Small Cajal body specific RNA 8: a 130-nucleotide RNA from Takifugu rubripes. It is annotated as a small Cajal body RNA. Lineage of the source: Eukaryota > Euteleostomi > Eurypterygia > Euacanthomorphacea > Takifugu. The literature on the family includes a 2002 paper in EMBO J by Darzacq et al., "Cajal body-specific small nuclear RNAs: a novel class of 2'-O-methylation and pseudouridylation guide RNAs". scaRNAs are a specific class of small nuclear RNAs which localise to the Cajal bodies and guide the modification of RNA polymerase II transcribed spliceosomal RNAs U1, U2, U4, U5 and U12. The family has 22 seed sequences and 955 matches in Rfam 15.1.
RNA sequence: UGGGGGGCAGAUACCUGGGCAGGCCUGAGCACUGGCCUGUCCGUCACGCGUCUCCCGACAGAAUUCCUGCUCUCUGAUGACCGCGGCGAGUUGAGGGAAAUCGCCGCGGACAGAUACGGAGCAGACACUC
Dot-bracket structure: .((((((........(((...((((........))))...))).......))))))..........(((((((.......(((..((((...........))))..)))........)))))))......